[Rfam]
RNA sequence: CAUCCCUAUGAUGAUCGCUAUGCGAAUAAAGUAGUGGACUGAUAUCAUUUGAUGAAGUCUUUGAUUCUGAGGGAUU
Numbered sequence: 001c002a003u004c005c006c007u008a009u010g011a012u013g014a015u016c017g018c019u020a021u022g023c024g025a026a027u028a029a030a031g032u033a034g035u036g037g038a039c040u041g042a043u044a045u046c047a048u049u050u051g052a053u054g055a056a057g058u059c060u061u062u063g064a065u066u067c068u069g070a071g072g073g074a075u076u
Stems, first nucleotide, its partner, number of pairs: 002075005
Dot-bracket structure: .(((((................................................................))))).

Shown here is a 76-nucleotide RNA from Aquilegia coerulea, a member of the family "Small nucleolar RNA R21". Rfam links the family to the GO terms nucleolus and RNA processing. For this family Rfam cites "Identification of 66 box C/D snoRNAs in Arabidopsis thaliana: extensive gene duplications generated multiple isoforms predicting new ribosomal RNA 2'-O-methylation sites" (Barneche et al., J Mol Biol, 2001). It is annotated as a C/D-box small nucleolar RNA. It scores 54 bits against the family's covariance model. Pairs were carried over by alignment from the consensus structure, which was predicted with PFOLD. The source organism's lineage runs through Eukaryota, Streptophytina, Magnoliopsida, Ranunculaceae and Aquilegia. Rfam 15.1 lists 472 matches to the family in 146 species.